Eukaryotic small subunit ribosomal RNA: a 186-nucleotide part of an RNA from Thetispelecaris remex.
Rfam's curators put it in the seed alignment.
The family has 90 seed sequences and 75,755 matches in Rfam 15.1.
Gene Ontology terms of the family: ribosome and structural constituent of ribosome.
Lineage of the source: Eukaryota > Bilateria > Mandibulata > Altocrustacea > Thetispelecaris.
RNA sequence: CCGCCCGUCGCUACUACCGAUUGGAUGGUGAGGUGAGGUCGUUGGAUCAGCCCCUUUGUGAUCUCUUUUUCCAUCUUCGGGUGGAGAGUCACCUCGGGCCAGCUGAGAAGAUGUCCAAGCUUUGCAAUCUAGAGGAAGUAAAAGUCGUAACAAGGUUUCCGUAGGUGAACCUGCGGAAGGAUCAUU
Numbered sequence: 001c002c003g004c005c006c007g008u009c010g011c012u013a014c015u016a017c018c019g020a021u022u023g024g025a026u027g028g029u030g031a032g033g034u035g036a037g038g039u040c041g042u043u044g045g046a047u048c049a050g051c052c053c054c055u056u057u058g059u060g061a062u063c064u065c066u067u068u069u070u071c072c073a074u075c076u077u078c079g080g081g082u083g084g085a086g087a088g089u090c091a092c093c094u095c096g097g098g099c100c101a102g103c104u105g106a107g108a109a110g111a112u113g114u115c116c117a118a119g120c121u122u123u124g125c126a127a128u129c130u131a132g133a134g135g136a137a138g139u140a141a142a143a144g145u146c147g148u149a150a151c152a153a154g155g156u157u158u159c160c161g162u163a164g165g166u167g168a169a170c171c172u173g174c175g176g177a178a179g180g181a182u183c184a185u186u
Stems, first nucleotide, its partner, number of pairs: 001154001003151001006147002009144001012140004017135002021131001023130004028125007037116002040113004047106005053098003058092004156179010